The record is a 128-nucleotide RNA sequence from Cucumis melo, which matches "Small nucleolar RNA snoR74" in Rfam. Its family is annotated with RNA processing and nucleolus in the Gene Ontology. It scores 109 bits against the family's covariance model. Pairs were carried over by alignment from the consensus structure, which was predicted with WAR. By type it is an H/ACA-box small nucleolar RNA.
RNA sequence: AAAAAAGCAGGGCUUUGUUGCCUUUAGUGGAUAGGGCUCUCGUAAACUUCAGGGAAACUAAGUGCAUUGUUAUUGGGUGAACCGUUGUAGAUAUAGUUGCUUAUGGUUCAGUAAAUGAUGCUACAUUU
Numbered sequence: 001a002a003a004a005a006a007g008c009a010g011g012g013c014u015u016u017g018u019u020g021c022c023u024u025u026a027g028u029g030g031a032u033a034g035g036g037c038u039c040u041c042g043u044a045a046a047c048u049u050c051a052g053g054g055a056a057a058c059u060a061a062g063u064g065c066a067u068u069g070u071u072a073u074u075g076g077g078u079g080a081a082c083c084g085u086u087g088u089a090g091a092u093a094u095a096g097u098u099g100c101u102u103a104u105g106g107u108u109c110a111g112u113a114a115a116u117g118a119u120g121c122u123a124c125a126u127u128u
Stems, first nucleotide, its partner, number of pairs: 005049003011038002014035004064121008078110007